Small nucleolar RNA Z105: a 72-nucleotide RNA sequence from Apium graveolens. Pairs were carried over by alignment from the consensus structure, which was predicted with CMfinder. On this family, see Chen et al., Nucleic Acids Res 2003: "The high diversity of snoRNAs in plants: identification and comparative study of 120 snoRNA genes from Oryza sativa". Taxonomically the source falls in Apium (Eukaryota, Streptophytina, Mesangiospermae, Apiaceae). Its family is annotated with RNA processing and nucleolus in the Gene Ontology. A search with the family's covariance model found it, with a score of 51 bits. The family has 11 seed sequences and 621 matches in Rfam 15.1.
[Rfam]
RNA sequence: UGAGCAUAAUGAGGAUGAUUUGUUUAUAUUCUGAUUCAUUAAUUGAUGAAUAUAACCUCCUACUCAUUCUGA
Numbered sequence: 001u002g003a004g005c006a007u008a009a010u011g012a013g014g015a016u017g018a019u020u021u022g023u024u025u026a027u028a029u030u031c032u033g034a035u036u037c038a039u040u041a042a043u044u045g046a047u048g049a050a051u052a053u054a055a056c057c058u059c060c061u062a063c064u065c066a067u068u069c070u071g072a
Stems, first nucleotide, its partner, number of pairs: 006067002009064001027048002